Notes:
This 145-nucleotide RNA from Bradyrhizobiaceae bacterium SG-6C belongs to the Rfam family "Bradyrhizobiaceae sRNA BjrC80". Lineage of the source: Bacteria > Pseudomonadati > Alphaproteobacteria > Hyphomicrobiales > Nitrobacteraceae.
[Rfam]
RNA sequence: AAUGGGGAGUUGUCGCCGGCUCGUAGCCCCCGCCGACGGCUCCUCCCCGGGGACGGGCCAAAAGCCCGUCCCUUGAAUUGCCUUCGAUGGAAAACGCCCCCCUCCGUCGAAGGUGGCGCGAUCGCACUCCAGUCGGUCGUGCAAU
Numbered sequence: 001a002a003u004g005g006g007g008a009g010u011u012g013u014c015g016c017c018g019g020c021u022c023g024u025a026g027c028c029c030c031c032g033c034c035g036a037c038g039g040c041u042c043c044u045c046c047c048c049g050g051g052g053a054c055g056g057g058c059c060a061a062a063a064g065c066c067c068g069u070c071c072c073u074u075g076a077a078u079u080g081c082c083u084u085c086g087a088u089g090g091a092a093a094a095c096g097c098c099c100c101c102c103u104c105c106g107u108c109g110a111a112g113g114u115g116g117c118g119c120g121a122u123c124g125c126a127c128u129c130c131a132g133u134c135g136g137u138c139g140u141g142c143a144a145u
Stems, first nucleotide, its partner, number of pairs: 009043001012040004017035004049073010074118002079116001081113002085109003089105003119139006125132001
It is one of the family's seed sequences. A reference for the family is Madhugiri et al. (2012), "Small RNAs of the Bradyrhizobium/Rhodopseudomonas lineage and their analysis", RNA Biol.